[Rfam]
RNA: Bacteroidales-1 6S-Bacteroidales RNA suggested
Organism: Muribaculaceae bacterium Isolate-037
RNA sequence: CACAUCAAAGUAAUAUUUGGGAAACUCAUCAAACUAUUAUGAAAUACCGAGACAAGCUGUCGUAUCAAUGGCGGGCCCCCCGCUUUCGGGCGGUGCUCUUCUGAGCGCAGGCGGAUUACAAAGAUACGAUGGCACUCAAAUCCUGUCAAUCGGAGUUUCAUCACAAAUCCUUUGAUGUGGCUUCAUAA
Numbered sequence: 001c002a003c004a005u006c007a008a009a010g011u012a013a014u015a016u017u018u019g020g021g022a023a024a025c026u027c028a029u030c031a032a033a034c035u036a037u038u039a040u041g042a043a044a045u046a047c048c049g050a051g052a053c054a055a056g057c058u059g060u061c062g063u064a065u066c067a068a069u070g071g072c073g074g075g076c077c078c079c080c081c082g083c084u085u086u087c088g089g090g091c092g093g094u095g096c097u098c099u100u101c102u103g104a105g106c107g108c109a110g111g112c113g114g115a116u117u118a119c120a121a122a123g124a125u126a127c128g129a130u131g132g133c134a135c136u137c138a139a140a141u142c143c144u145g146u147c148a149a150u151c152g153g154a155g156u157u158u159c160a161u162c163a164c165a166a167a168u169c170c171u172u173u174g175a176u177g178u179g180g181c182u183u184c185a186u187a188a
Stems, first nucleotide, its partner, number of pairs: 056133011069120002076114002079111001082091003096105003